The record is a 70-nucleotide RNA sequence from Synaphobranchus kaupii, which matches "Small nucleolar RNA SNORD82" in Rfam. snoRNA U82 or Z25 is found in both humans and mice. Gene Ontology terms of the family: RNA processing and nucleolus. On this family, see Galardi et al., Mol Cell Biol 2002: "Purified box C/D snoRNPs are able to reproduce site-specific 2'-O-methylation of target RNA in vitro". NCBI's taxonomy places the organism under Eukaryota, Chordata, Elopocephalai, Elopocephala, Synaphobranchus. Pairs were carried over by alignment from the consensus structure, which was predicted with PFOLD.
RNA sequence: CUUAUAAGUGAUGAGCAAUAAGGGACUUAAUACUGAUGUAUUUGAUGUUACCUUUAUUCAGCUGAUGUGU
Numbered sequence: 001c002u003u004a005u006a007a008g009u010g011a012u013g014a015g016c017a018a019u020a021a022g023g024g025a026c027u028u029a030a031u032a033c034u035g036a037u038g039u040a041u042u043u044g045a046u047g048u049u050a051c052c053u054u055u056a057u058u059c060a061g062c063u064g065a066u067g068u069g070u
Base pairs, nucleotide, nucleotide: 003069004068005067006066